The record is a 72-nucleotide RNA from Celerinatantimonas diazotrophica, which matches "Fluoride riboswitch aptamer (crcB RNA motif)" in Rfam.

RNA sequence: AAAACUCAGGGUGAUGGUGUUCCACCUUUUUCUAACCGUCGUUUUACAACGAAUAAUGACACCUGAUUUUAU
Numbered sequence: 001a002a003a004a005c006u007c008a009g010g011g012u013g014a015u016g017g018u019g020u021u022c023c024a025c026c027u028u029u030u031u032c033u034a035a036c037c038g039u040c041g042u043u044u045u046a047c048a049a050c051g052a053a054u055a056a057u058g059a060c061a062c063c064u065g066a067u068u069u070u071a072u
Stems, first nucleotide, its partner, number of pairs: 010026004016063006039052005